A member of the RNA family "Purine riboswitch aptamer" from Kroppenstedtia eburnea, 102 nucleotides long. About the family: Riboswitches are metabolite binding domains within certain messenger RNAs that serve as precision sensors for their corresponding targets.
RNA sequence: AAAUGAUUCGAAGUUAUUUCUCAUAUAUGCUCGGGAAUAGGGCCCGAGUGUUUCUACCCGGAAACCGUAAAUUUCCGGACUAUGGGAGAUGCCUUUCCAGGG
Numbered sequence: 001a002a003a004u005g006a007u008u009c010g011a012a013g014u015u016a017u018u019u020c021u022c023a024u025a026u027a028u029g030c031u032c033g034g035g036a037a038u039a040g041g042g043c044c045c046g047a048g049u050g051u052u053u054c055u056a057c058c059c060g061g062a063a064a065c066c067g068u069a070a071a072u073u074u075c076c077g078g079a080c081u082a083u084g085g086g087a088g089a090u091g092c093c094u095u096u097c098c099a100g101g102g
Stems, first nucleotide, its partner, number of pairs: 018088008029049007058078007